Small nucleolar RNA SNORA77: a 126-nucleotide RNA sequence from Phyllostomus discolor.
A search with the family's covariance model found it, with a score of 80 bits.
The source organism's lineage runs through Eukaryota, Opisthokonta, Metazoa, Gnathostomata and Phyllostomus.
[Rfam]
RNA sequence: GCUGACCCACUGUGCACCCAGAUUCAGUCACAGGAGGAUGCUGUUUUUGUCUGCCACAGAAACAUUCCAGGGUACUGUGACUACCUUGACCUGUCAAGGGUAAUGCAGCUGUUCAGGGACAUGGAA
Numbered sequence: 001g002c003u004g005a006c007c008c009a010c011u012g013u014g015c016a017c018c019c020a021g022a023u024u025c026a027g028u029c030a031c032a033g034g035a036g037g038a039u040g041c042u043g044u045u046u047u048u049g050u051c052u053g054c055c056a057c058a059g060a061a062a063c064a065u066u067c068c069a070g071g072g073u074a075c076u077g078u079g080a081c082u083a084c085c086u087u088g089a090c091c092u093g094u095c096a097a098g099g100g101u102a103a104u105g106c107a108g109c110u111g112u113u114c115a116g117g118g119a120c121a122u123g124g125a126a
Stems, first nucleotide, its partner, number of pairs: 001054002004051003014041003018037002023032001067117002070114004075108005082102005

Rfam links the family to the GO terms nucleolus and RNA processing. From the family's description: ACA63 (SNORA77) is a member of the H/ACA class of snoRNAs that guide the sites of modification of uridines to pseudouridines. This snoRNA was identified by computational screening and its expression in mouse experimentally verified by Northern blot and primer extension analysis. ACA63 is proposed to guide the pseudouridylation of 18S rRNA U814.